[Rfam]
RNA sequence: AUGCCUUAAACUUAUGACUAAGGAAAUAAUGCGGGGUGAUGCCUGAUUCCUCACUGCUAAUCUGAGAUGUAUUUUUGAGCAGAUAAAGGUUGCCCCUAAGGUUACGCGUCUACUUUGUGGGAUCCUUGGGAGUCAAGACCUGCCCA
Numbered sequence: 001a002u003g004c005c006u007u008a009a010a011c012u013u014a015u016g017a018c019u020a021a022g023g024a025a026a027u028a029a030u031g032c033g034g035g036g037u038g039a040u041g042c043c044u045g046a047u048u049c050c051u052c053a054c055u056g057c058u059a060a061u062c063u064g065a066g067a068u069g070u071a072u073u074u075u076u077g078a079g080c081a082g083a084u085a086a087a088g089g090u091u092g093c094c095c096c097u098a099a100g101g102u103u104a105c106g107c108g109u110c111u112a113c114u115u116u117g118u119g120g121g122a123u124c125c126u127u128g129g130g131a132g133u134c135a136a137g138a139c140c141u142g143c144c145c146a
Base pairs, nucleotide, nucleotide: 004023005022006021007020008019031049032045033044034043035042050066051065052064053063082144084142087141088140089139090138091137096130097129098127099126100125101124105121107119108118109117